Shown here is a 207-nucleotide RNA sequence from Mus spicilegus, a member of the family "Small nucleolar RNA SNORA73 family". Taxonomically the source falls in Mus (Eukaryota, Eumetazoa, Gnathostomata, Euteleostomi). Rfam links the family to the GO terms nucleolus and RNA processing. Rfam describes the family as follows. U17 (SNORA73A and SNORA73B) also known as E1 belongs to the H/ACA class of small nucleolar RNAs (snoRNAs). Vertebrate U17 is intron-encoded and ranges in length from 200-230 nucleotides, longer than most snoRNAs. It is one of the most abundant snoRNAs in human cells and is essential for the cleavage of pre-rRNA within the 5' external transcribed spacer (ETS). It scores 127 bits against the family's covariance model. The family's consensus secondary structure is taken from published work.
RNA sequence: UCAACAUGGACACCCUGGAGGUCAUUCAUUCUCCUGGAGCUCUGUCCUAGUGGCAUAGUGAACCACAGGGCACUGCAUGGUGAUAUAAAGUUCCUUUCCACAAUGUUGGAGAUGAAGCUGGACUUCAAGUCUGUGCCUUCAUAUCCCUAAGACUUCUUGGAGUCCCGUGGAUGAUGACUAAGGAGAAAAGCCAUGCAUAAAACAAAC
Numbered sequence: 001u002c003a004a005c006a007u008g009g010a011c012a013c014c015c016u017g018g019a020g021g022u023c024a025u026u027c028a029u030u031c032u033c034c035u036g037g038a039g040c041u042c043u044g045u046c047c048u049a050g051u052g053g054c055a056u057a058g059u060g061a062a063c064c065a066c067a068g069g070g071c072a073c074u075g076c077a078u079g080g081u082g083a084u085a086u087a088a089a090g091u092u093c094c095u096u097u098c099c100a101c102a103a104u105g106u107u108g109g110a111g112a113u114g115a116a117g118c119u120g121g122a123c124u125u126c127a128a129g130u131c132u133g134u135g136c137c138u139u140c141a142u143a144u145c146c147c148u149a150a151g152a153c154u155u156c157u158u159g160g161a162g163u164c165c166c167g168u169g170g171a172u173g174a175u176g177a178c179u180a181a182g183g184a185g186a187a188a189a190g191c192c193a194u195g196c197a198u199a200a201a202a203c204a205a206a207c
Stems, first nucleotide, its partner, number of pairs: 001109007008047005013039001015037001017034004050101004060093003065086001067084001068081001138197001140195003153185006162172004